RNA sequence: CUUUCUGUGCAGGUUGGGAGAGGUGGCAAUGCCCUGUGCUUGAGUGGUAUUGCACUUGUCCCGGCCUGUUGAGGACAU
Numbered sequence: 001c002u003u004u005c006u007g008u009g010c011a012g013g014u015u016g017g018g019a020g021a022g023g024u025g026g027c028a029a030u031g032c033c034c035u036g037u038g039c040u041u042g043a044g045u046g047g048u049a050u051u052g053c054a055c056u057u058g059u060c061c062c063g064g065c066c067u068g069u070u071g072a073g074g075a076c077a078u
Stems, first nucleotide, its partner, number of pairs: 004074003009069006016062004022056003026053008
Rfam assigns this 78-nucleotide RNA from Austrofundulus limnaeus to the family "mir-92 microRNA precursor family". Rfam 15.1 lists 1,347 matches to the family in 653 species. This family represents the microRNA precursor mir-92. Human miR-92 has two predicted hairpin precursor sequences: mir-92-1 on chromosome 13 and mir-92-2 on chromosome X. miR-92 has also been cloned from mouse embryonic stem cells. The mature sequence is excised from the 3' arm of the hairpin. The match comes from Rfam's covariance-model search (72 bits). Pairs were carried over by alignment from the consensus structure, which was predicted with PFOLD.